Shown here is an 89-nucleotide RNA from Clostridium sp. C105KSO13, a member of the family "Glycine riboswitch aptamer". It scores 62 bits against the family's covariance model. The pairing is the family consensus, mapped onto this sequence.

RNA sequence: UUGAUAAUUUCAGGAGAGACCAUAUUUGAUUAUGGAACCGAAGGGGAACAGGCGUAAAAGCUCUCAGGUAAAAGGACUGAAAUUUGACG
Numbered sequence: 001u002u003g004a005u006a007a008u009u010u011c012a013g014g015a016g017a018g019a020c021c022a023u024a025u026u027u028g029a030u031u032a033u034g035g036a037a038c039c040g041a042a043g044g045g046g047a048a049c050a051g052g053c054g055u056a057a058a059a060g061c062u063c064u065c066a067g068g069u070a071a072a073a074g075g076a077c078u079g080a081a082a083u084u085u086g087a088c089g
Stems, first nucleotide, its partner, number of pairs: 006084008020035004037069003040065002044063003